[Rfam]
RNA: Group II catalytic intron D1-D4-5
RNA sequence: GAUAACUGGUAAUUCGACAGGUGGAAUGACGGGGUAACGCCCUGAAACGCCUGCCCUCGGUGGGCGUGCAUCGGCUGCAAAGCCGGUGUACGAAGCCCCACGACAACGGCUGAGAGCAACCGUAGCCGCCGCCAACGGCAGCCGAAAGCGGUCUGGAGGCAGACUGUGUUGCCUAUAGGCCAAGGGUCUACAAA
Numbered sequence: 001g002a003u004a005a006c007u008g009g010u011a012a013u014u015c016g017a018c019a020g021g022u023g024g025a026a027u028g029a030c031g032g033g034g035u036a037a038c039g040c041c042c043u044g045a046a047a048c049g050c051c052u053g054c055c056c057u058c059g060g061u062g063g064g065c066g067u068g069c070a071u072c073g074g075c076u077g078c079a080a081a082g083c084c085g086g087u088g089u090a091c092g093a094a095g096c097c098c099c100a101c102g103a104c105a106a107c108g109g110c111u112g113a114g115a116g117c118a119a120c121c122g123u124a125g126c127c128g129c130c131g132c133c134a135a136c137g138g139c140a141g142c143c144g145a146a147a148g149c150g151g152u153c154u155g156g157a158g159g160c161a162g163a164c165u166g167u168g169u170u171g172c173c174u175a176u177a178g179g180c181c182a183a184g185g186g187u188c189u190a191c192a193a194a
Stems, first nucleotide, its partner, number of pairs: 018053006031043004054186004061100004065092012108181004116172005121144002128139002148167008